Rfam assigns this 585-nucleotide part of an RNA to the family "Bacterial small subunit ribosomal RNA". On this family, see Cannone et al., BMC Bioinformatics 2002: "The comparative RNA web (CRW) site: an online database of comparative sequence and structure information for ribosomal, intron, and other RNAs". Rfam 15.1 lists 42,628 matches to the family in 10,626 species. The base pairs follow the family's consensus structure, which is taken from published work.

[Rfam]
RNA sequence: UGACGGGGGCCCGCACAAGAGGUGGAGCAUGUGGUUUAAUUCGAUGCAAAGCGAAGAACCUUACCAGGGCUUGACAUGCCGCGAAUCCUCUUGAAAGAGAGGGGUGCCUUCGAGAACACGGACACAGGUGGUGCAUGGUUGUCGUCAGCUCGUGCCGUAAGGUGUUGGGUUAAGUCUCGCAACGAGCGCAACCCUCGUGUUUAGUUGCCAACAUUUAGUUUGGAACCCUGAGCAGACUGCCGGUGAUAAGCCGGAGGAAGGUGAGGAUGACGUCAAGUCAUCAUGCCCCUUAUGCCCUGGGCGACACACGUGCUACAAUGGACGGGACAAAGGAUCACGAUCCCGCGAGGGUGAGCUAACUCCAAAAACCCGUCCUCAGUUCGGAUUGUAGGUUGCAACUCGCCUGCAUGAAGCCGGAAUCGCUAGUAAUCAACGGUCAGCCAUACGGCGGUGAAUUCGUUCCCGGGCCUUGUACACACCGCCCGUCACACUAUGGGAGCUGGCCAUGCCCGAAGUCGUUACCUUAACGGCAAGGAGGGGGAUGCCGAAGGCAGGGCUAGUGACUGGAGUGAAGUCGUAACAAGG
Dot-bracket structure: (((((.(((((((.((..(.((((.((((((((((....((((........))))........(((((((......(((((.(..(((((((....))))))).(.(......).)).))).))..((.((((..((((((.((...(((((((((....)))..((((......))))..)))))).....((((.(((((((...((...(......).))....)))))))..((.(((((.....))))).)).....))))....)).).)))...))))))))....)))))))...)).)))))))).)...(((((((.....(((...(...(((....)))...).....))).....)))))))......(....(((((((........)))))))....).....))).).....(((..((..........))..)))......))...)))))))))).))..(.(..((...((((.(((..(((((((.((((....(.((((.((((..(......).)))))))).)...)))).)))))))..))).))))....))...)..).